A member of the RNA family "Bacterial RNase P class A" from Methylibium petroleiphilum, 339 nucleotides long. Rfam's curators put it in the seed alignment. The family's consensus secondary structure is taken from published work.

[Rfam]
RNA sequence: GAAGUGGGCCAGACCGCCGCUGGCACACCGGCCGAAAGGCCGUGCUGGAGGAAGGUCCGGACUGCACAGGGCAGCGCAGCAGCCAACGGCUGUCCACCGCAAGGUGAGGAUCAGAGCAACAGAGACGAGUCCGGGCGGCGUAGCCGUCCGGGGUGAAACGGGCAAUCUCUGCGCGCAGCAACACCAAAUAGGCCAGCGUCGAUGUGGCUCCGCGGAGCUGGCGGGUAGGUGGCACCGAGCCGUUCCCGCGAGGGGCGGCCCAGAGGAAUGGCGGUCACGGCCGCGACGCCGCAAGGCGCCGCGGCCGCACAGAAUCCGGCCUAUCGGCCCGCUUCACAC
Numbered sequence: 001g002a003a004g005u006g007g008g009c010c011a012g013a014c015c016g017c018c019g020c021u022g023g024c025a026c027a028c029c030g031g032c033c034g035a036a037a038g039g040c041c042g043u044g045c046u047g048g049a050g051g052a053a054g055g056u057c058c059g060g061a062c063u064g065c066a067c068a069g070g071g072c073a074g075c076g077c078a079g080c081a082g083c084c085a086a087c088g089g090c091u092g093u094c095c096a097c098c099g100c101a102a103g104g105u106g107a108g109g110a111u112c113a114g115a116g117c118a119a120c121a122g123a124g125a126c127g128a129g130u131c132c133g134g135g136c137g138g139c140g141u142a143g144c145c146g147u148c149c150g151g152g153g154u155g156a157a158a159c160g161g162g163c164a165a166u167c168u169c170u171g172c173g174c175g176c177a178g179c180a181a182c183a184c185c186a187a188a189u190a191g192g193c194c195a196g197c198g199u200c201g202a203u204g205u206g207g208c209u210c211c212g213c214g215g216a217g218c219u220g221g222c223g224g225g226u227a228g229g230u231g232g233c234a235c236c237g238a239g240c241c242g243u244u245c246c247c248g249c250g251a252g253g254g255g256c257g258g259c260c261c262a263g264a265g266g267a268a269u270g271g272c273g274g275u276c277a278c279g280g281c282c283g284c285g286a287c288g289c290c291g292c293a294a295g296g297c298g299c300c301g302c303g304g305c306c307g308c309a310c311a312g313a314a315u316c317c318g319g320c321c322u323a324u325c326g327g328c329c330c331g332c333u334u335c336a337c338a339c
Stems, first nucleotide, its partner, number of pairs: 001335010011324001012276007020048007053322003057319005062178004069209002074174005079093005094108001095106004109169002114167002116163002130152009182231004192222006203214004239259004244255004